[Rfam]
RNA sequence: CCUUCGGACUGUCAGACAAACCUUAGUAGCUUAGGCCAACAGGGACAGGUUGAACAAGGAA
Number, nucleotide and partner (000 for none) at each position: 001c059002c058003u057004u056005c000006g000007g000008a000009c048010u047011g046012u045013c044014a000015g000016a000017c000018a000019a000020a000021c043022c042023u041024u000025a000026g000027u000028a000029g036030c035031u000032u000033a000034g000035g030036c029037c000038a000039a000040c000041a023042g022043g021044g013045a012046c011047a010048g009049g000050u000051u000052g000053a000054a000055c000056a004057a003058g002059g001060a000061a000
RNA: RAGATH-18 RNA